[Rfam]
RNA sequence: AAAGCAGGCUGCAAUUACAGUGCUUCAUUCUGUGGGAGUACUGCCAUUCCCCUGCUGAGAGUAACUCUGUUAAUGCUGGCUUUGAUUUCACCAGUCGGUUGAUGAAAUCAUUCCCCUUUAACAUGCACAAAU
Numbered sequence: 001a002a003a004g005c006a007g008g009c010u011g012c013a014a015u016u017a018c019a020g021u022g023c024u025u026c027a028u029u030c031u032g033u034g035g036g037a038g039u040a041c042u043g044c045c046a047u048u049c050c051c052c053u054g055c056u057g058a059g060a061g062u063a064a065c066u067c068u069g070u071u072a073a074u075g076c077u078g079g080c081u082u083u084g085a086u087u088u089c090a091c092c093a094g095u096c097g098g099u100u101g102a103u104g105a106a107a108u109c110a111u112u113c114c115c116c117u118u119u120a121a122c123a124u125g126c127a128c129a130a131a132u
Stems, first nucleotide, its partner, number of pairs: 003056006018043009066125001068123006075116001083110008092101003
The family of this 132-nucleotide RNA from Sphenodon punctatus is "Small nucleolar RNA SNORA69". Rfam's curators write: U69 is a member of the H/ACA class of small nucleolar RNAs (snoRNAs) which act as guides in the the modification of uridines to pseudouridines. The family's consensus secondary structure was predicted with PFOLD.